[Rfam]
RNA: Yersinia YenS sRNA
Organism: Yersinia enterocolitica
RNA sequence: GCUUUGCAGAAUUAGAUUUUAAUAUAAUAGAACUAGUAUCUUAGCGCACUGCCGUUAAGAAAGUUAGUCUGAAAAGAAUAUAUUUUCGCCAACACCAGGGCACUUCAGAUUCACCAAGUACAAGUUUCACCCUGCCAUCUGGAUGUUUUUACAUUCAGAUGGCCAUCA
Numbered sequence: 001g002c003u004u005u006g007c008a009g010a011a012u013u014a015g016a017u018u019u020u021a022a023u024a025u026a027a028u029a030g031a032a033c034u035a036g037u038a039u040c041u042u043a044g045c046g047c048a049c050u051g052c053c054g055u056u057a058a059g060a061a062a063g064u065u066a067g068u069c070u071g072a073a074a075a076g077a078a079u080a081u082a083u084u085u086u087c088g089c090c091a092a093c094a095c096c097a098g099g100g101c102a103c104u105u106c107a108g109a110u111u112c113a114c115c116a117a118g119u120a121c122a123a124g125u126u127u128c129a130c131c132c133u134g135c136c137a138u139c140u141g142g143a144u145g146u147u148u149u150u151a152c153a154u155u156c157a158g159a160u161g162g163c164c165a166u167c168a
Stems, first nucleotide, its partner, number of pairs: 001125004005120003011037005017032005039060008063114002066111008076087003088101003134163013